About this RNA
Shown here is a 119-nucleotide RNA sequence from Microbulbifer rhizosphaerae, a member of the family "Group II catalytic intron D1-D4-2".
RNA sequence: GAGGGCGGGCCCCUCGGAGCCGCCGUGCAGGCGGAGGCUUCAAACCACCUACUGCUGCUGCACUUAAAAGGUGUGGUAGUGAGCGAGUAUGGAAAAGGCCGGUCAAGAACCGGUCAGGU
Numbered sequence: 001g002a003g004g005g006c007g008g009g010c011c012c013c014u015c016g017g018a019g020c021c022g023c024c025g026u027g028c029a030g031g032c033g034g035a036g037g038c039u040u041c042a043a044a045c046c047a048c049c050u051a052c053u054g055c056u057g058c059u060g061c062a063c064u065u066a067a068a069a070g071g072u073g074u075g076g077u078a079g080u081g082a083g084c085g086a087g088u089a090u091g092g093a094a095a096a097g098g099c100c101g102g103u104c105a106a107g108a109a110c111c112g113g114u115c116a117g118g119u
Stems, first nucleotide, its partner, number of pairs: 001015005016041006023034004046118001048092002050089004054080002057077003061073004097115006
The family has 144 seed sequences and 1,231 matches in Rfam 15.1. Group II introns are found in rRNA, tRNA and mRNA of organelles in fungi, plants and protists, and also in mRNA in bacteria. The source organism's lineage runs through Bacteria, Pseudomonadati, Gammaproteobacteria, Microbulbiferaceae and Microbulbifer.